[Rfam]
RNA: Vault RNA
RNA sequence: GGGCUGGCUUUAGCUCAGCGGUUCCUUCGACAGUGUUCUAACCACCUCUUUGCAGAGGUGAGUGGCUCGAAAUAUGCAGGCGUUCACCAGCCCUUUU
Numbered sequence: 001g002g003g004c005u006g007g008c009u010u011u012a013g014c015u016c017a018g019c020g021g022u023u024c025c026u027u028c029g030a031c032a033g034u035g036u037u038c039u040a041a042c043c044a045c046c047u048c049u050u051u052g053c054a055g056a057g058g059u060g061a062g063u064g065g066c067u068c069g070a071a072a073u074a075u076g077c078a079g080g081c082g083u084u085c086a087c088c089a090g091c092c093c094u095u096u097u
Stems, first nucleotide, its partner, number of pairs: 002092006013081003018077003026071005